mir-17 microRNA precursor family: an 82-nucleotide sequence from Ophiophagus hannah.
Rfam's curators write: This family represents the microRNA (miRNA) precursor mir-17, family, which includes mir-20, mir-91, and mir-103. miRNAs are transcribed as ~70nt precursors (modelled here) and subsequently processed by the Dicer enzyme to give a ~22nt product.
On this family, see Lagos-Quintana et al., Science 2001: "Identification of novel genes coding for small expressed RNAs".
Its family is annotated with RISC complex and miRNA-mediated post-transcriptional gene silencing in the Gene Ontology.

[Rfam]
RNA sequence: CCUGGCAGGGCCAAAGUGCUCAUAGUGCAGGUAGUUGUGGAGCCAAAUUCUACUGUAAUGUGGGCACUUCCAGUCCUGCUGG
Numbered sequence: 001c002c003u004g005g006c007a008g009g010g011c012c013a014a015a016g017u018g019c020u021c022a023u024a025g026u027g028c029a030g031g032u033a034g035u036u037g038u039g040g041a042g043c044c045a046a047a048u049u050c051u052a053c054u055g056u057a058a059u060g061u062g063g064g065c066a067c068u069u070c071c072a073g074u075c076c077u078g079c080u081g082g
Stems, first nucleotide, its partner, number of pairs: 005079004010074002014069011026057003030054005